[Rfam]
Rfam assigns this 354-nucleotide part of an RNA from an uncultured bacterium to the family "Bacterial small subunit ribosomal RNA". For this family Rfam cites "The comparative RNA web (CRW) site: an online database of comparative sequence and structure information for ribosomal, intron, and other RNAs" (Cannone et al., BMC Bioinformatics, 2002).
RNA sequence: GGUGUAAAGGGUGCGUAGACGGGAAGUCAAGUUGGUUGUGAAAUCCCUCGGCUCAACUGAGGAACUGCAACCAAAACUAACUUUCUUGAGUGCUGGAGAGGAAAGUGGAAUUCCUAGUGUAGCGGUGAAAUGCGUAGAUAUUAGGAGGAACACCAGUGGCGAAGGCGACUUUCUGGACAGUAACUGACGUUGAGGCACGAAAGUGUGGGGAGCAAACAGGAUUAGAUACCCUGGUAGUCCACACCGUAAACGAUGGAUACUAGGUGUAGGGGAUGAAUAAUCCUCUGUGCCGUCGCAAACGCAGUAAGUAUCCCACCUGGGGAGUACGGCCGCAAGGUUGAAACUCAAAGGAAU
Numbered sequence: 001g002g003u004g005u006a007a008a009g010g011g012u013g014c015g016u017a018g019a020c021g022g023g024a025a026g027u028c029a030a031g032u033u034g035g036u037u038g039u040g041a042a043a044u045c046c047c048u049c050g051g052c053u054c055a056a057c058u059g060a061g062g063a064a065c066u067g068c069a070a071c072c073a074a075a076a077c078u079a080a081c082u083u084u085c086u087u088g089a090g091u092g093c094u095g096g097a098g099a100g101g102a103a104a105g106u107g108g109a110a111u112u113c114c115u116a117g118u119g120u121a122g123c124g125g126u127g128a129a130a131u132g133c134g135u136a137g138a139u140a141u142u143a144g145g146a147g148g149a150a151c152a153c154c155a156g157u158g159g160c161g162a163a164g165g166c167g168a169c170u171u172u173c174u175g176g177a178c179a180g181u182a183a184c185u186g187a188c189g190u191u192g193a194g195g196c197a198c199g200a201a202a203g204u205g206u207g208g209g210g211a212g213c214a215a216a217c218a219g220g221a222u223u224a225g226a227u228a229c230c231c232u233g234g235u236a237g238u239c240c241a242c243a244c245c246g247u248a249a250a251c252g253a254u255g256g257a258u259a260c261u262a263g264g265u266g267u268a269g270g271g272g273a274u275g276a277a278u279a280a281u282c283c284u285c286u287g288u289g290c291c292g293u294c295g296c297a298a299a300c301g302c303a304g305u306a307a308g309u310a311u312c313c314c315a316c317c318u319g320g321g322g323a324g325u326a327c328g329g330c331c332g333c334a335a336g337g338u339u340g341a342a343a344c345u346c347a348a349a350g351g352a353a354u
Stems, first nucleotide, its partner, number of pairs: 001317003009314001011198004016192001018191003022085006030078002032074009046062006089185003092181004100174007107151001111147008122133003159166002203244006212238002217233004255313006263291012295302002319346003328339004

Source information: Gene Ontology terms of the family: structural constituent of ribosome and ribosome. It is one of the family's seed sequences.